[Rfam]
RNA sequence: GGAAGUGUGUGCUAGUGAUGGCACAGCUGAACAUUGAUCGCUAACGUAGAAAUUGUGGCAGAUCUGCUCAGUGAGUGUUGUUACGUGGUCGCUUCAAGUAGCUUGUGUUCGGCUCCCGAUUGCGCGUUCAGGUUCGUGGUUUGAUAAAAACCUCGGAUUUCCACGCCUGCACGGUCGAGUCUUCACGUCGCUCCUCGAACUACCGCGAUUUCCAAAUUGGGGGGCAAAUCGAAUAGGUCAGACGAGGUUGUAAUUUGUCGCUUCCAUAUACAGGCACUGCAGCACGCAGUAUGCCAUGUUUUUUUU
Numbered sequence: 001g002g003a004a005g006u007g008u009g010u011g012c013u014a015g016u017g018a019u020g021g022c023a024c025a026g027c028u029g030a031a032c033a034u035u036g037a038u039c040g041c042u043a044a045c046g047u048a049g050a051a052a053u054u055g056u057g058g059c060a061g062a063u064c065u066g067c068u069c070a071g072u073g074a075g076u077g078u079u080g081u082u083a084c085g086u087g088g089u090c091g092c093u094u095c096a097a098g099u100a101g102c103u104u105g106u107g108u109u110c111g112g113c114u115c116c117c118g119a120u121u122g123c124g125c126g127u128u129c130a131g132g133u134u135c136g137u138g139g140u141u142u143g144a145u146a147a148a149a150a151c152c153u154c155g156g157a158u159u160u161c162c163a164c165g166c167c168u169g170c171a172c173g174g175u176c177g178a179g180u181c182u183u184c185a186c187g188u189c190g191c192u193c194c195u196c197g198a199a200c201u202a203c204c205g206c207g208a209u210u211u212c213c214a215a216a217u218u219g220g221g222g223g224g225c226a227a228a229u230c231g232a233a234u235a236g237g238u239c240a241g242a243c244g245a246g247g248u249u250g251u252a253a254u255u256u257g258u259c260g261c262u263u264c265c266a267u268a269u270a271c272a273g274g275c276a277c278u279g280c281a282g283c284a285c286g287c288a289g290u291a292u293g294c295c296a297u298g299u300u301u302u303u304u305u306u
Stems, first nucleotide, its partner, number of pairs: 001265007015084005027071003032066002036064004040059004046053001273295003276290005
Dot-bracket structure: (((((((.......(((((.......(((..((..((((((((..(......)..)))).))))))..)))........)))))..............................................................................................................................................................................))))))).......((((((((.....)))))..)))...........
Shown here is a 306-nucleotide RNA sequence from Dufourea novaeangliae, a member of the family "Arthropod 7SK RNA". The match comes from Rfam's covariance-model search (139 bits). Pairs were carried over by alignment from the consensus structure, which is taken from published work. The family's RNA type in Rfam is non-coding RNA gene.